[Rfam]
RNA: NoRC associated RNA, pRNA
Organism: Phyllostomus discolor
RNA sequence: UGAUGGGGAUGCGCUGGGUGGCAUGUGGCCGCGCCUCCCUUCCGGGAAGUCCCGGAGAUCUGUGGAGGGACCCCUGCCCCCGUGA
Numbered sequence: 001u002g003a004u005g006g007g008g009a010u011g012c013g014c015u016g017g018g019u020g021g022c023a024u025g026u027g028g029c030c031g032c033g034c035c036u037c038c039c040u041u042c043c044g045g046g047a048a049g050u051c052c053c054g055g056a057g058a059u060c061u062g063u064g065g066a067g068g069g070a071c072c073c074c075u076g077c078c079c080c081c082g083u084g085a
Base pairs, nucleotide, nucleotide: 004082006080008079011077012076018074020072021071029064030062031061033059035057036056037055038054
Dot-bracket structure: ...(.(.(..((.....(.((.......(((.(.((((...............)))).).)).)......)).).)).)).)...